[Rfam]
RNA sequence: GACGAGUCGAGAAAAGAACGCGAGAUGCGGAUAUUUUUGAGAUAGAGGACACCUGCUUUUAAUAGCAAGCACGGGAAGUGCCGGCGUUGGGAUCGCCCUGAUGUGAACAGGUAGCGCCCACA
Numbered sequence: 001g002a003c004g005a006g007u008c009g010a011g012a013a014a015a016g017a018a019c020g021c022g023a024g025a026u027g028c029g030g031a032u033a034u035u036u037u038u039g040a041g042a043u044a045g046a047g048g049a050c051a052c053c054u055g056c057u058u059u060u061a062a063u064a065g066c067a068a069g070c071a072c073g074g075g076a077a078g079u080g081c082c083g084g085c086g087u088u089g090g091g092a093u094c095g096c097c098c099u100g101a102u103g104u105g106a107a108c109a110g111g112u113a114g115c116g117c118c119c120a121c122a
Stems, first nucleotide, its partner, number of pairs: 006043003009038005019029003048088003052084002054067004069081004089119003095115002097111003